[Rfam]
The record is a 92-nucleotide sequence from Aegilops tauschii, which matches "MIR1120/MIR1122 microRNA precursor family" in Rfam.

RNA sequence: GAAUUCCCUCUGUCUCAAAAUAUAAGAACGUUUUUGACACUAGUGUAGUGUAGUGUCAAAAACGUUCUUAUAUUAUGGGACGGAGGGAGUAG
Number, nucleotide and partner (000 for none) at each position: 001g000002a000003a090004u089005u088006c000007c086008c085009u084010c083011u082012g000013u080014c079015u078016c077017a076018a000019a074020a073021u072022a071023u070024a069025a068026g067027a066028a065029c064030g063031u062032u061033u060034u059035u058036g057037a056038c055039a054040c053041u052042a000043g000044u000045g000046u000047a000048g000049u000050g000051u000052a041053g040054u039055g038056u037057c036058a035059a034060a033061a032062a031063c030064g029065u028066u027067c026068u025069u024070a023071u022072a021073u020074u019075a000076u017077g016078g015079g014080a013081c000082g011083g010084a009085g008086g007087g000088a005089g004090u003091a000092g000
The source organism's lineage runs through Eukaryota, Streptophytina, Euphyllophyta, Petrosaviidae and Aegilops tauschii. The family has 6 seed sequences and 44,765 matches in Rfam 15.1.